[Rfam]
RNA: c-di-AMP riboswitch aptamer (ydaO/yuaA leader)
Organism: Paenibacillus dendrobii
RNA sequence: AUUUUUGAAUCGCUGAAUUUCCAUUCAUAGGGGUGGAAAUCGGGGGAACCAAUCGCGUGUAUCCCAGUCAUCCGGUGUGAGAGUCGGAGGCAGGUGAUACCGCAGGGGUGAAUCCUGUGAACGGAUGCCAUGGAUCCGGACACGGGUAGAGCGACUCUCACCGCUCGAAUCCGUCAGCUAACCUCGUAAGCGUCGUUUGAGAGAGGAA
Numbered sequence: 001a002u003u004u005u006u007g008a009a010u011c012g013c014u015g016a017a018u019u020u021c022c023a024u025u026c027a028u029a030g031g032g033g034u035g036g037a038a039a040u041c042g043g044g045g046g047a048a049c050c051a052a053u054c055g056c057g058u059g060u061a062u063c064c065c066a067g068u069c070a071u072c073c074g075g076u077g078u079g080a081g082a083g084u085c086g087g088a089g090g091c092a093g094g095u096g097a098u099a100c101c102g103c104a105g106g107g108g109u110g111a112a113u114c115c116u117g118u119g120a121a122c123g124g125a126u127g128c129c130a131u132g133g134a135u136c137c138g139g140a141c142a143c144g145g146g147u148a149g150a151g152c153g154a155c156u157c158u159c160a161c162c163g164c165u166c167g168a169a170u171c172c173g174u175c176a177g178c179u180a181a182c183c184u185c186g187u188a189a190g191c192g193u194c195g196u197u198u199g200a201g202a203g204a205g206g207a208a
Base pairs, nucleotide, nucleotide: 011192012191013190014189018039019038020037021036022035023034024033025032026031041186042185043184044183045182050105106172107171108170114146115145116144117143118142119141149166150165151164152163